[Rfam]
RNA: Eukaryotic small subunit ribosomal RNA, nucleotides 600 to 1135
RNA sequence: CAGUUAAAAAGCUCGUAGUUGGAUUUGUGGUGUGUCCUGUCGGCCCGUUGACUUUGUCGAUGCGGCUGUACGGGUCUGCCUUUCAUGGGAUUGUUGGCUUUGUGGCAUUAGGUUGUCGCAUUGUCGAUGCCCAUCUUUUACUGUGAAAAAAUUAGAGUGUUCAAAGCAGGCUUAUGCCGUUGAAUAUAUUAGCAUGGAAUAAUGAUAUAGGACCUUGGUACUAUUUUGUUGGUUUGCGCACUAAGGUAAUGAUUAAUAGGGACAGUUGGGGGUAUUCGUAUUCCAUUGUCAGAGGUGAAAUUCUUGGAUUUUUGGAAGACGAACUACUGCGAAAGCAUUUACCAAGGAUGUUUUCAUUAAUCAAGAACGAAAGUUAGGGGAUCGAAGAUGAUUAGAUACCAUCGUAGUCUUAACCAUAAACUAUGCCGACAAGGGAUUGGUGGAGUUUCGUUUCGUCUCCAUCAGCACCUUAUGAGAAAUCACAAGUCUUUGGGUUCCGGGGGGAGUAUGGUCGCAAGGCUGAAACUUAAAGAAAU
Numbered sequence: 001c002a003g004u005u006a007a008a009a010a011g012c013u014c015g016u017a018g019u020u021g022g023a024u025u026u027g028u029g030g031u032g033u034g035u036c037c038u039g040u041c042g043g044c045c046c047g048u049u050g051a052c053u054u055u056g057u058c059g060a061u062g063c064g065g066c067u068g069u070a071c072g073g074g075u076c077u078g079c080c081u082u083u084c085a086u087g088g089g090a091u092u093g094u095u096g097g098c099u100u101u102g103u104g105g106c107a108u109u110a111g112g113u114u115g116u117c118g119c120a121u122u123g124u125c126g127a128u129g130c131c132c133a134u135c136u137u138u139u140a141c142u143g144u145g146a147a148a149a150a151a152u153u154a155g156a157g158u159g160u161u162c163a164a165a166g167c168a169g170g171c172u173u174a175u176g177c178c179g180u181u182g183a184a185u186a187u188a189u190u191a192g193c194a195u196g197g198a199a200u201a202a203u204g205a206u207a208u209a210g211g212a213c214c215u216u217g218g219u220a221c222u223a224u225u226u227u228g229u230u231g232g233u234u235u236g237c238g239c240a241c242u243a244a245g246g247u248a249a250u251g252a253u254u255a256a257u258a259g260g261g262a263c264a265g266u267u268g269g270g271g272g273u274a275u276u277c278g279u280a281u282u283c284c285a286u287u288g289u290c291a292g293a294g295g296u297g298a299a300a301u302u303c304u305u306g307g308a309u310u311u312u313u314g315g316a317a318g319a320c321g322a323a324c325u326a327c328u329g330c331g332a333a334a335g336c337a338u339u340u341a342c343c344a345a346g347g348a349u350g351u352u353u354u355c356a357u358u359a360a361u362c363a364a365g366a367a368c369g370a371a372a373g374u375u376a377g378g379g380g381a382u383c384g385a386a387g388a389u390g391a392u393u394a395g396a397u398a399c400c401a402u403c404g405u406a407g408u409c410u411u412a413a414c415c416a417u418a419a420a421c422u423a424u425g426c427c428g429a430c431a432a433g434g435g436a437u438u439g440g441u442g443g444a445g446u447u448u449c450g451u452u453u454c455g456u457c458u459c460c461a462u463c464a465g466c467a468c469c470u471u472a473u474g475a476g477a478a479a480u481c482a483c484a485a486g487u488c489u490u491u492g493g494g495u496u497c498c499g500g501g502g503g504g505a506g507u508a509u510g511g512u513c514g515c516a517a518g519g520c521u522g523a524a525a526c527u528u529a530a531a532g533a534a535a536u
Stems, first nucleotide, its partner, number of pairs: 001499001003497001009496001011368001013366002018361003259355004263350002266347002271343004277321002281317005288310001292303003329336002373414006383407001387403004425495003428488003432470003437465008448455001474481002501528003510521004